[Rfam]
RNA sequence: GUCAGAAAGAGGAAGAAAGAGAUGGUAUAAGAGCACUGGGAAUGAGAAUAUCGAGGAAAGUCAAGCUUGAUGAUUACCUCCUAGCAAUGGGGGCGUGGAAAUUAAAUUUGGUGUUUCCUGAUGUCUCUCAUUCCUACUGUUCUCAAGCCCUCCUUCCUCUUCCUUUUGGCU
Number, nucleotide and partner (000 for none) at each position: 001g000002u000003c000004a000005g000006a000007a000008a000009g162010a161011g160012g159013a158014a000015g156016a155017a154018a000019g000020a000021g152022a151023u000024g000025g000026u147027a000028u145029a000030a143031g142032a141033g140034c139035a138036c000037u136038g135039g134040g133041a132042a131043u130044g129045a128046g127047a126048a000049u123050a122051u121052c000053g119054a000055g118056g117057a000058a116059a115060g114061u113062c000063a000064a000065g000066c000067u000068u000069g000070a000071u000072g000073a000074u000075u000076a000077c000078c000079u000080c000081c000082u000083a000084g000085c000086a000087a000088u000089g000090g000091g000092g000093g000094c000095g000096u000097g000098g000099a000100a000101a000102u000103u000104a000105a000106a000107u000108u000109u000110g000111g000112u000113g061114u060115u059116u058117c056118c055119u053120g000121a051122u050123g049124u000125c000126u047127c046128u045129c044130a043131u042132u041133c040134c039135u038136a037137c000138u035139g034140u033141u032142c031143u030144c000145a028146a000147g026148c000149c000150c000151u022152c021153c000154u017155u016156c015157c000158u013159c012160u011161u010162c009163c000164u000165u000166u000167u000168g000169g000170c000171u000
The family of this 171-nucleotide RNA sequence from Panicum virgatum is "MIR2118 microRNA precursor family".